[Rfam]
RNA sequence: UGCACAUGAUGAAUAACUUCACGUUGGUCCGUGUUUCUGAUUUUUAUGAUGUUAAUGUUAUUCUGAUGUG
Numbered sequence: 001u002g003c004a005c006a007u008g009a010u011g012a013a014u015a016a017c018u019u020c021a022c023g024u025u026g027g028u029c030c031g032u033g034u035u036u037c038u039g040a041u042u043u044u045u046a047u048g049a050u051g052u053u054a055a056u057g058u059u060a061u062u063c064u065g066a067u068g069u070g
Stems, first nucleotide, its partner, number of pairs: 001070004
Small nucleolar RNA SNORD18: a 70-nucleotide RNA from Araneus ventricosus. The literature on the family includes a 1993 paper in Nucleic Acids Res by Prislei et al., "Two different snoRNAs are encoded in introns of amphibian and human L1 ribosomal protein genes". The family has 16 seed sequences and 2,622 matches in Rfam 15.1. Taxonomically the source falls in Araneus (Eukaryota, Opisthokonta, Metazoa, Bilateria). The base pairs follow the family's consensus structure, which was predicted with PFOLD. It is annotated as a C/D-box small nucleolar RNA. Gene Ontology terms of the family: nucleolus and RNA processing.